[Rfam]
RNA sequence: CGUCGGUCCUCCCGCAACGCUAAACCGCGAACCCCGCCAGGCCCGGAAGGGAGCAACGGUAGUGGUGGAUGCGUGUGCCGGGAUGUGGCUGUCGGGG
Dot-bracket structure: ...(((((.((((((.((((...(((((.....(((.....(((....))).....)))..)))))....)))))...)))))...)))))......
The family of this 97-nucleotide RNA from Aidingimonas halophila is "Bacterial small signal recognition particle RNA". For this family Rfam cites "Temperature-responsive in vitro RNA structurome of Yersinia pseudotuberculosis" (Righetti et al., Proc Natl Acad Sci U S A, 2016). Its family is annotated with SRP-dependent cotranslational protein targeting to membrane, signal sequence recognition and signal recognition particle, plasma membrane targeting in the Gene Ontology. Its Rfam clan is "SRP clan". Rfam's curators write: The signal recognition particle (SRP) is a universally conserved ribonucleoprotein involved in the co-translational targeting of proteins to membranes. A search with the family's covariance model found it, with a score of 74 bits.